Ribosomal protein L10 leader: a 129-nucleotide RNA from Levilactobacillus brevis. Rfam's curators write: This family is a putative r-protein leader autoregulatory structure found in B. subtilis and other low-GC Gram-positive bacteria. The literature on the family includes a 2015 paper in Nucleic Acids Res by Yakhnin et al., "Ribosomal protein L10(L12)4 autoregulates expression of the Bacillus subtilis rplJL operon by a transcription attenuation mechanism".

[Rfam]
RNA sequence: AAGUUAUGAAUUGAUCUACCUAAGACUCAGGUGACCAAAUUGGUCUUAAUCACCGCCUGCCGAGGCAGAAGUUUACUUAAACUUUUGACUCCUUAUGUCUUGGUGGCAUAGGGAUUUUUUUAUCCCACC
Numbered sequence: 001a002a003g004u005u006a007u008g009a010a011u012u013g014a015u016c017u018a019c020c021u022a023a024g025a026c027u028c029a030g031g032u033g034a035c036c037a038a039a040u041u042g043g044u045c046u047u048a049a050u051c052a053c054c055g056c057c058u059g060c061c062g063a064g065g066c067a068g069a070a071g072u073u074u075a076c077u078u079a080a081a082c083u084u085u086u087g088a089c090u091c092c093u094u095a096u097g098u099c100u101u102g103g104u105g106g107c108a109u110a111g112g113g114a115u116u117u118u119u120u121u122a123u124c125c126c127a128c129c
Stems, first nucleotide, its partner, number of pairs: 028059005033045003090114010